Shown here is a 78-nucleotide sequence from Rhamnella rubrinervis, a member of the family "Plastid-ycf2 5UTR RNA".
The family has 204 seed sequences and 3,521 matches in Rfam 15.1.
NCBI's taxonomy places the organism under Eukaryota, Streptophytina, eudicotyledons, fabids, Rhamnella.
Rfam's curators write: Plastid ycf2 is a non-coding RNA (ncRNA) recognised in plastids. It was found in the prime untranslated region (5UTR) of ycf2 genes, it presents a tRNA-like motif which suggests it can be involved in mRNA maturation, particularly involved in defining the precise 5' end of the transcript.
A search with the family's covariance model found it, with a score of 66 bits.
For this family Rfam cites "Retrograde signaling in plants: A critical review focusing on the GUN pathway and beyond" (Richter et al., Plant Commun, 2023).
Pairs were carried over by alignment from the consensus structure, which was predicted with LocARNA.
RNA sequence: UACCAUCUAGCAGAAGUUGAACCUACGAAUUCGCCAAUUAUGAUGAGUUGGGUGCUUUAACCUUUCAGCCAUGGAUGC
Numbered sequence: 001u002a003c004c005a006u007c008u009a010g011c012a013g014a015a016g017u018u019g020a021a022c023c024u025a026c027g028a029a030u031u032c033g034c035c036a037a038u039u040a041u042g043a044u045g046a047g048u049u050g051g052g053u054g055c056u057u058u059a060a061c062c063u064u065u066c067a068g069c070c071a072u073g074g075a076u077g078c
Base pairs, nucleotide, nucleotide: 004077005076006075007074008073010026012024013023040072041071042070047069048068049067050066051065052064054062
Dot-bracket structure: ...(((((.(.((.........)).).............(((....((((((.(.......).)))))))))))))).